[Rfam]
RNA sequence: GCAUCUUUAUCGCUGAGUCCUUGAAGGGAAAAGGAACGGGGGAACCAAAGGAGCGCAAGAGGAUACUUCAUUUGUCCGUAAGCUGGACACAGUAUCAAGCUCCAUGGGGUGAAUCUUGCAGGUAUGCUUUAUAAGUAUACUUGCUGGUAGGGCGACUCUCACGCCCGAAUCCGACAGCUAACCUCGUAAGCGUAUCGAGAGAGGCAAC
Numbered sequence: 001g002c003a004u005c006u007u008u009a010u011c012g013c014u015g016a017g018u019c020c021u022u023g024a025a026g027g028g029a030a031a032a033g034g035a036a037c038g039g040g041g042g043a044a045c046c047a048a049a050g051g052a053g054c055g056c057a058a059g060a061g062g063a064u065a066c067u068u069c070a071u072u073u074g075u076c077c078g079u080a081a082g083c084u085g086g087a088c089a090c091a092g093u094a095u096c097a098a099g100c101u102c103c104a105u106g107g108g109g110u111g112a113a114u115c116u117u118g119c120a121g122g123u124a125u126g127c128u129u130u131a132u133a134a135g136u137a138u139a140c141u142u143g144c145u146g147g148u149a150g151g152g153c154g155a156c157u158c159u160c161a162c163g164c165c166c167g168a169a170u171c172c173g174a175c176a177g178c179u180a181a182c183c184u185c186g187u188a189a190g191c192g193u194a195u196c197g198a199g200a201g202a203g204g205c206a207a208c
Stems, first nucleotide, its partner, number of pairs: 011192004018035005036187006046106002107172003115147002118144010150166004
Overview:
Rfam assigns this 208-nucleotide RNA sequence from Paenibacillus foliorum to the family "c-di-AMP riboswitch aptamer (ydaO/yuaA leader)". A search with the family's covariance model found it, with a score of 87 bits. Gene Ontology terms of the family: regulation of gene expression and cyclic-di-AMP binding. Lineage of the source: Bacteria > Bacillota > Bacilli > Caryophanales > Paenibacillus.